[Rfam]
RNA sequence: UAUAAAUGUAGAGGUGCGAAUAUUAUAAGUAAUUUUCCCGAGUGGAUAACGUUGAAGGAAGAGGAAAGGAGUAUUCGCCGAAAUCGGUUAAAAGUCAUUUUAUCCGGUUGGUGGCAUUACCGAAAGGGAUGUUACUGUCAUAGUAUUAUUUAUUCACUAUGGAGCGCUACUGGUUAG
Dot-bracket structure: .......((((....(((((((((........((((((..................)))))).......)))))))))...((((((.(((((....))))).))))))(((((((((.(.....).))))))))).(((((((...........)))))))....)))).......
A member of the RNA family "Lysine riboswitch aptamer" from Mesocricetibacter intestinalis, 177 nucleotides long. Pairs were carried over by alignment from the consensus structure, which is taken from published work. Gene Ontology term of the family: lysine biosynthetic process. NCBI's taxonomy places the organism under Bacteria, Pseudomonadota, Pasteurellales, Pasteurellaceae, Mesocricetibacter. Rfam describes the family as follows. Riboswitches are metabolite binding domains within certain messenger RNAs that serve as precision sensors for their corresponding targets.